This 133-nucleotide sequence from Myotis myotis belongs to the Rfam family "U11 spliceosomal RNA". The family's consensus secondary structure is taken from published work. Clan: U1 clan. Lineage of the source: Eukaryota > Bilateria > Dipnotetrapodomorpha > Tetrapoda > Myotis.

RNA sequence: AAAAAGGGCCUCUGUCGUAGUGGCACAGGUAGAGCAGAUUGAUUGCUCUGCGUGCGGAAUUGACAUCAAGAGAUUUAGGAAGCAUAAUUUUUUGGUACUUGGGCAGCUGGUGAUCACUGGUCCUGGCAACCCC
Numbered sequence: 001a002a003a004a005a006g007g008g009c010c011u012c013u014g015u016c017g018u019a020g021u022g023g024c025a026c027a028g029g030u031a032g033a034g035c036a037g038a039u040u041g042a043u044u045g046c047u048c049u050g051c052g053u054g055c056g057g058a059a060u061u062g063a064c065a066u067c068a069a070g071a072g073a074u075u076u077a078g079g080a081a082g083c084a085u086a087a088u089u090u091u092u093u094g095g096u097a098c099u100u101g102g103g104c105a106g107c108u109g110g111u112g113a114u115c116a117c118u119g120g121u122c123c124u125g126g127c128a129a130c131c132c133c
Stems, first nucleotide, its partner, number of pairs: 008083002011080002013025005026054002029051009055078001057076005101131002106127005112122004